[Rfam]
Rfam assigns this 94-nucleotide RNA sequence from Tigriopus californicus to the family "mir-252 microRNA precursor family". The source organism's lineage runs through Eukaryota, Pancrustacea, Harpacticoida, Harpacticidae and Tigriopus. It scores 66 bits against the family's covariance model. The literature on the family includes a 2009 paper in BMC Genomics by Li et al., "Direct sequencing and expression analysis of a large number of miRNAs in Aedes aegypti and a multi-species survey of novel mosquito miRNAs".
RNA sequence: UCUUGUUCCUAAGUACUAGUGCCGCGGGAGUUAACGGAGCAAUCAAAAAUUUCAAAUUUGACUACUCCUGCUGUUCAAGUGCUUAUCAACAGGA
Numbered sequence: 001u002c003u004u005g006u007u008c009c010u011a012a013g014u015a016c017u018a019g020u021g022c023c024g025c026g027g028g029a030g031u032u033a034a035c036g037g038a039g040c041a042a043u044c045a046a047a048a049a050u051u052u053c054a055a056a057u058u059u060g061a062c063u064a065c066u067c068c069u070g071c072u073g074u075u076c077a078a079g080u081g082c083u084u085a086u087c088a089a090c091a092g093g094a
Base pairs, nucleotide, nucleotide: 001094002093003092004091005090006089007088010085011084012083013082014081015080016079017078019076024071025070026069027068028067029066030065